[Rfam]
RNA sequence: AAGUUUCACAAUAGUAAUUAAACCUAGCGAGAGAGGAACCGUUGAUUCAAAUAAUUUGUCAUCCCGUUAGGCUGAAAAGUCAGUGGCACGAAGCUACCGUAUUCUGUAUUAUUACUGAACGUCUCUAAGUCAGAAUCCGGGCAAGAAGGGAUGCAUGCGACCGUCGUCCGCUUGCUGAUCCACAGUAGGGGCCUUUAGCCCCCAAGUGAACGUUUUGUUGGCUAAGUAACCGCGACAGAAGUGUCGCGGUGACCACCUUGAUGUACAAUUUCCAUCGAGCGGUGGCUAGUAUACUUUGCAGAAGAAAUAAAUAUGUGACGGGGUAUUGUAAGUGGAAGAGUAGCCUUGCUGCCACGAUCCACUGAGAUACAACCCUUUGUCACUCUGAUUCGU
Numbered sequence: 001a002a003g004u005u006u007c008a009c010a011a012u013a014g015u016a017a018u019u020a021a022a023c024c025u026a027g028c029g030a031g032a033g034a035g036g037a038a039c040c041g042u043u044g045a046u047u048c049a050a051a052u053a054a055u056u057u058g059u060c061a062u063c064c065c066g067u068u069a070g071g072c073u074g075a076a077a078a079g080u081c082a083g084u085g086g087c088a089c090g091a092a093g094c095u096a097c098c099g100u101a102u103u104c105u106g107u108a109u110u111a112u113u114a115c116u117g118a119a120c121g122u123c124u125c126u127a128a129g130u131c132a133g134a135a136u137c138c139g140g141g142c143a144a145g146a147a148g149g150g151a152u153g154c155a156u157g158c159g160a161c162c163g164u165c166g167u168c169c170g171c172u173u174g175c176u177g178a179u180c181c182a183c184a185g186u187a188g189g190g191g192c193c194u195u196u197a198g199c200c201c202c203c204a205a206g207u208g209a210a211c212g213u214u215u216u217g218u219u220g221g222c223u224a225a226g227u228a229a230c231c232g233c234g235a236c237a238g239a240a241g242u243g244u245c246g247c248g249g250u251g252a253c254c255a256c257c258u259u260g261a262u263g264u265a266c267a268a269u270u271u272c273c274a275u276c277g278a279g280c281g282g283u284g285g286c287u288a289g290u291a292u293a294c295u296u297u298g299c300a301g302a303a304g305a306a307a308u309a310a311a312u313a314u315g316u317g318a319c320g321g322g323g324u325a326u327u328g329u330a331a332g333u334g335g336a337a338g339a340g341u342a343g344c345c346u347u348g349c350u351g352c353c354a355c356g357a358u359c360c361a362c363u364g365a366g367a368u369a370c371a372a373c374c375c376u377u378u379g380u381c382a383c384u385c386u387g388a389u390u391c392g393u
Stems, first nucleotide, its partner, number of pairs: 003154002006151002009148001012144001014142002017047001019045001021043003049102001051100002056096001058094001063090001066087002068083001070081004105139002112132001114130003161285007289391001291389002295309001297307001315383006321375003325368002332362004337358001340355002343352002
A member of the RNA family "Eukaryotic large subunit ribosomal RNA" from Solanum tuberosum, 393 nucleotides of a longer RNA. Rfam's curators put it in the seed alignment. Rfam links the family to the GO terms structural constituent of ribosome and ribosome. Taxonomically the source falls in Solanum (Eukaryota, eudicotyledons, Solanaceae, Solaneae).